[Rfam]
RNA sequence: GGCCUCGUUUCGUCCCCGGUGGGGCGCCCCGCCUGCAAAGCGGGUGCUGCGGGUUCGACUCCCGACGAGGUC
Numbered sequence: 001g002g003c004c005u006c007g008u009u010u011c012g013u014c015c016c017c018g019g020u021g022g023g024g025c026g027c028c029c030c031g032c033c034u035g036c037a038a039a040g041c042g043g044g045u046g047c048u049g050c051g052g053g054u055u056c057g058a059c060u061c062c063c064g065a066c067g068a069g070g071u072c
Stems, first nucleotide, its partner, number of pairs: 001072008011026006028044005050064004
Dot-bracket structure: ((((((((..((((((....)))))).(((((.......))))).....((((.......))))))))))))
Rfam assigns this 72-nucleotide RNA sequence from Plantactinospora sp. BB1 to the family "Selenocysteine transfer RNA". Pairs were carried over by alignment from the consensus structure, which is taken from published work. The source organism's lineage runs through Bacteria, Bacillati, Actinomycetes, Micromonosporaceae and Plantactinospora.